[Rfam]
Background: ZMP/ZTP riboswitch aptamer (pfl RNA motif): a 159-nucleotide RNA sequence from Paenacidovorax caeni. The family's consensus secondary structure is taken from published work. It scores 42 bits against the family's covariance model.

RNA sequence: ACGCCCGUACGCGACUGGCGAUAGGCGCGGCGCCCUGGCAAAGCCGGGCACCGCCGCUGACGUGGAAACCGGCAGGAAGCUUUUCCUGUGACCACUGGGGAGCGUACCGCGCGGGCCAUCCACCUUGCAGCGUUUCAGCCGUUCGCCUGGGCAGCCCUU
Numbered sequence: 001a002c003g004c005c006c007g008u009a010c011g012c013g014a015c016u017g018g019c020g021a022u023a024g025g026c027g028c029g030g031c032g033c034c035c036u037g038g039c040a041a042a043g044c045c046g047g048g049c050a051c052c053g054c055c056g057c058u059g060a061c062g063u064g065g066a067a068a069c070c071g072g073c074a075g076g077a078a079g080c081u082u083u084u085c086c087u088g089u090g091a092c093c094a095c096u097g098g099g100g101a102g103c104g105u106a107c108c109g110c111g112c113g114g115g116c117c118a119u120c121c122a123c124c125u126u127g128c129a130g131c132g133u134u135u136c137a138g139c140c141g142u143u144c145g146c147c148u149g150g151g152c153a154g155c156c157c158u159u
Base pairs, nucleotide, nucleotide: 005109007107008106009105010104011103012102015099016098017147018146019145020144021143062095063094064093065092136154138152139151140150